The family of this 127-nucleotide RNA sequence from Marmota monax is "Small nucleolar RNA SNORA25". Lineage of the source: Eukaryota > Opisthokonta > Teleostomi > Sciuromorpha > Marmota. It scores 87 bits against the family's covariance model. The family's consensus secondary structure was predicted with RNAfold.
RNA sequence: AGGUCAAUUUCAGAGGGCUCGUAGGGCUAUGAAACCAAGAGCUCUUAAUGCUAUGACCAAAGAUUGCAGUUCUCCACAAAAUCCCCCUCAUGACUCAAUAAUGCUAUUUUCCUGAGGAGACAUGAGA
Numbered sequence: 001a002g003g004u005c006a007a008u009u010u011c012a013g014a015g016g017g018c019u020c021g022u023a024g025g026g027c028u029a030u031g032a033a034a035c036c037a038a039g040a041g042c043u044c045u046u047a048a049u050g051c052u053a054u055g056a057c058c059a060a061a062g063a064u065u066g067c068a069g070u071u072c073u074c075c076a077c078a079a080a081a082u083c084c085c086c087c088u089c090a091u092g093a094c095u096c097a098a099u100a101a102u103g104c105u106a107u108u109u110u111c112c113u114g115a116g117g118a119g120a121c122a123u124g125a126g127a
Stems, first nucleotide, its partner, number of pairs: 002058005013046008022038001025036002071120005078113001081110001093102001095100001
Dot-bracket structure: .(((((......((((((((.(..((........)).))))))))).......)))))............(((((..(..(...........(.(....).).......)..)..))))).......
ACA25 is a member of the H/ACA class of snoRNA that guide the sites of modification of uridines to pseudouridines.